Sense overlapping transcript RNA 2652 (sot): a 176-nucleotide RNA from Natrarchaeobaculum aegyptiacum. From the family's description: It is associated with IS1341-type transposase (tnpB) genes, at the 3'-end in H. salinarum NRC-1. It scores 65 bits against the family's covariance model. Lineage of the source: Archaea > Methanobacteriota > Halobacteria > Natrialbaceae > Natrarchaeobaculum.
RNA sequence: AACCGGGCGACUCGAUCACGGCGGAGUUUACGUCGAUCGGAUCGCUCGUUGGGUACAUCGACUGACGUCAUCCCGCUCGCUUAUCGAGCAGGGAGUGCUAGUGCACGGCUGAGGGAACCAACAAAAGCCUCGGGCCACCGCGCCCGAGGUUGUUUACACCAUGUAAGUGGUGGUUG
Numbered sequence: 001a002a003c004c005g006g007g008c009g010a011c012u013c014g015a016u017c018a019c020g021g022c023g024g025a026g027u028u029u030a031c032g033u034c035g036a037u038c039g040g041a042u043c044g045c046u047c048g049u050u051g052g053g054u055a056c057a058u059c060g061a062c063u064g065a066c067g068u069c070a071u072c073c074c075g076c077u078c079g080c081u082u083a084u085c086g087a088g089c090a091g092g093g094a095g096u097g098c099u100a101g102u103g104c105a106c107g108g109c110u111g112a113g114g115g116a117a118c119c120a121a122c123a124a125a126a127g128c129c130u131c132g133g134g135c136c137a138c139c140g141c142g143c144c145c146g147a148g149g150u151u152g153u154u155u156a157c158a159c160c161a162u163g164u165a166a167g168u169g170g171u172g173g174u175u176g
Base pairs, nucleotide, nucleotide: 005047006046007045008044009043012040013039019035020034021033022032023031048066049065052063053062054061078173081170082169083168084167086164088162092160093159095157096156097155099111100110101109102108126151127150128149129148130147131146132145133144134143135142